RT-12 RNA: a 122-nucleotide sequence from Paraburkholderia tagetis.
[Rfam]
RNA sequence: UAACAUUAAGCGGCCAAAGCCCGGAUGCAAUAACCGGGUGAGAUAAUGUAAAGAACAUUGGUGUAUAUCCGGGGGUGCGUAUUUUGGAUUGCCGCCAACCGCCGCUCCCCCGGUUUGCUAGG
Numbered sequence: 001u002a003a004c005a006u007u008a009a010g011c012g013g014c015c016a017a018a019g020c021c022c023g024g025a026u027g028c029a030a031u032a033a034c035c036g037g038g039u040g041a042g043a044u045a046a047u048g049u050a051a052a053g054a055a056c057a058u059u060g061g062u063g064u065a066u067a068u069c070c071g072g073g074g075g076u077g078c079g080u081a082u083u084u085u086g087g088a089u090u091g092c093c094g095c096c097a098a099c100c101g102c103c104g105c106u107c108c109c110c111c112g113g114u115u116u117g118c119u120a121g122g
Base pairs, nucleotide, nucleotide: 010095011094012093013092014091019039020038021037022036023035024034046058047057048056049055059122063118064117065116069113070112071111072110073109074108075107077105078104085101086100087099089097

The source organism's lineage runs through Bacteria, Pseudomonadota, Betaproteobacteria, Burkholderiales and Paraburkholderia. A search with the family's covariance model found it, with a score of 77 bits.